This 71-nucleotide RNA sequence from Nocardia aurantia belongs to the Rfam family "tRNA". The source organism's lineage runs through Bacteria, Actinomycetota, Actinomycetes, Mycobacteriales and Nocardia. Rfam classes the family as a transfer RNA.
RNA sequence: GCGGGCGUGGCCGAGUGGUGAGGUACCGGAUUGCAAAUCCGUUCACGUGGGUUCGAAUCCCGCCGCUCGCU
Dot-bracket structure: (((((((..(((.........)))..((((.......)))).....(((((.......)))))))))))).